[Rfam]
RNA sequence: GCUUCCAUCGUUUUCGAGUGAUGUAGAGGCCUUUACAAACUGAAGAAUUGUAAACCCUCUAUCUUCACUUCGAAAACAAGAAGA
Number, nucleotide and partner (000 for none) at each position: 001g000002c083003u082004u081005c080006c000007a000008u000009c000010g077011u076012u075013u074014u073015c072016g071017a070018g068019u067020g066021a000022u000023g062024u061025a060026g059027a058028g057029g056030c000031c000032u054033u053034u052035a051036c050037a049038a048039a000040c045041u000042g000043a000044a000045g040046a000047a000048u038049u037050g036051u035052a034053a033054a032055c000056c029057c028058u027059c026060u025061a024062u023063c000064u000065u000066c020067a019068c018069u000070u017071c016072g015073a014074a013075a012076a011077c010078a000079a000080g005081a004082a003083g002084a000